[Rfam]
The record is a 177-nucleotide sequence from Oceanobacillus iheyensis, which matches "Lysine riboswitch aptamer" in Rfam.
The family's consensus secondary structure is taken from published work.

RNA sequence: CGGUGAGGUAGAGGAGCAUACAACAUUAGUAAUCGACAAGAGGAUGACAACGAUGAUAGUUGGUGGAAGGGUUGUUUGCCGAAGCAUAAUAAGGGUCAGACUUAUUAUUGCUGGUACAUCUUUGAAUAAAAGAUGCACUGUCAUGCAAAAUUAAGUGCAUGGAGAACUACUGAUCGA
Numbered sequence: 001c002g003g004u005g006a007g008g009u010a011g012a013g014g015a016g017c018a019u020a021c022a023a024c025a026u027u028a029g030u031a032a033u034c035g036a037c038a039a040g041a042g043g044a045u046g047a048c049a050a051c052g053a054u055g056a057u058a059g060u061u062g063g064u065g066g067a068a069g070g071g072u073u074g075u076u077u078g079c080c081g082a083a084g085c086a087u088a089a090u091a092a093g094g095g096u097c098a099g100a101c102u103u104a105u106u107a108u109u110g111c112u113g114g115u116a117c118a119u120c121u122u123u124g125a126a127u128a129a130a131a132g133a134u135g136c137a138c139u140g141u142c143a144u145g146c147a148a149a150a151u152u153a154a155g156u157g158c159a160u161g162g163a164g165a166a167c168u169a170c171u172g173a174u175c176g177a
Stems, first nucleotide, its partner, number of pairs: 007171005016079003020075005032064006039057001083112004087107007113139003117135007141162007